RNA sequence: CAGCGGUACCCACCUUGAGGCCCCUGGAAGCAUCAAGAAGUCUCCCAUGUGGGAGACAAGACAACCCUGUUUAAUAUUUAAACAGCAGCGUUCCCC
Numbered sequence: 001c002a003g004c005g006g007u008a009c010c011c012a013c014c015u016u017g018a019g020g021c022c023c024c025u026g027g028a029a030g031c032a033u034c035a036a037g038a039a040g041u042c043u044c045c046c047a048u049g050u051g052g053g054a055g056a057c058a059a060g061a062c063a064a065c066c067c068u069g070u071u072u073a074a075u076a077u078u079u080a081a082a083c084a085g086c087a088g089c090g091u092u093c094c095c096c
Base pairs, nucleotide, nucleotide: 003025005023006022009019011017033061034060040057041056042055043054044053045052046051067085068084069083070082071081072080073079074078